[Rfam]
RNA sequence: GCCCCCUUCAAGAGCUAAGCCAAUGCGAGUGCCGGAGAUAAGCGCCGGAUGGGGAGCAGUAU
Numbered sequence: 001g002c003c004c005c006c007u008u009c010a011a012g013a014g015c016u017a018a019g020c021c022a023a024u025g026c027g028a029g030u031g032c033c034g035g036a037g038a039u040a041a042g043c044g045c046c047g048g049a050u051g052g053g054g055a056g057c058a059g060u061a062u
Stems, first nucleotide, its partner, number of pairs: 003054004014030003032048004037043001

Shown here is a 62-nucleotide RNA from Erwinia billingiae, a member of the family "rydB RNA". The source organism's lineage runs through Bacteria, Pseudomonadati, Pseudomonadota, Enterobacterales and Erwinia. The family's RNA type in Rfam is small RNA. Rfam's curators write: This family consists of several bacterial sequences from E. coli, Shigella flexneri and Salmonella species. This RNA gene was discovered by an RNA screen between the ydiC and ydiH in E. coli. This gene is only 67 bases in length and is composed of a hairpin like structure. The function of this RNA is unknown. Rfam's curators put it in the seed alignment.